[Rfam]
RNA sequence: AUCAAUCUUCGGGGCAGGGUGCAAUUCCCUACCGGCGGUGAUGAGCAUAGUCUCUAAGCCCGCGAGCCUUUUUGGCAGGAUUCGGUGUGAUUCCGAAGCCGACAGUAUAGUCUGGAUGGGAGAAGAUGGAG
Numbered sequence: 001a002u003c004a005a006u007c008u009u010c011g012g013g014g015c016a017g018g019g020u021g022c023a024a025u026u027c028c029c030u031a032c033c034g035g036c037g038g039u040g041a042u043g044a045g046c047a048u049a050g051u052c053u054c055u056a057a058g059c060c061c062g063c064g065a066g067c068c069u070u071u072u073u074g075g076c077a078g079g080a081u082u083c084g085g086u087g088u089g090a091u092u093c094c095g096a097a098g099c100c101g102a103c104a105g106u107a108u109a110g111u112c113u114g115g116a117u118g119g120g121a122g123a124a125g126a127u128g129g130a131g
Base pairs, nucleotide, nucleotide: 003129005127006126007125008124009123010122017029018028019027031111032110033101034100035063036062037061038060058099059098068075081097082096083095084094085093103114104113105112

This 131-nucleotide sequence from Bacillus safensis belongs to the Rfam family "FMN riboswitch aptamer (RFN element)". The organism belongs to Bacillus, within Bacteria. The base pairs follow the family's consensus structure, which is taken from published work.